[Rfam]
RNA sequence: ACGGGGGUCCACGGACCCCCGGCCUGACCCCGGUACCUCAUACGGCCGGGGCGG
Numbered sequence: 001a002c003g004g005g006g007g008u009c010c011a012c013g014g015a016c017c018c019c020c021g022g023c024c025u026g027a028c029c030c031c032g033g034u035a036c037c038u039c040a041u042a043c044g045g046c047c048g049g050g051g052c053g054g
Base pairs, nucleotide, nucleotide: 002021003020004019005018006017007016008015009014024054025053026052028051029050030049031048032047033046034045